[Rfam]
RNA: tRNA
Organism: Phormidium nigroviride
RNA sequence: GGAGAAGUGGCCGAGCGGCUUAAGGCACUUUCCUGCUAAGAAAGAGCGGUUUAACAACCGUCGUGGGUUCAAAUCCCACCUUCUCCG
Numbered sequence: 001g002g003a004g005a006a007g008u009g010g011c012c013g014a015g016c017g018g019c020u021u022a023a024g025g026c027a028c029u030u031u032c033c034u035g036c037u038a039a040g041a042a043a044g045a046g047c048g049g050u051u052u053a054a055c056a057a058c059c060g061u062c063g064u065g066g067g068u069u070c071a072a073a074u075c076c077c078a079c080c081u082u083c084u085c086c087g
Base pairs, nucleotide, nucleotide: 001086002085003084004083005082006081007080010026011025012024028044029043030042031041032040063079064078065077066076067075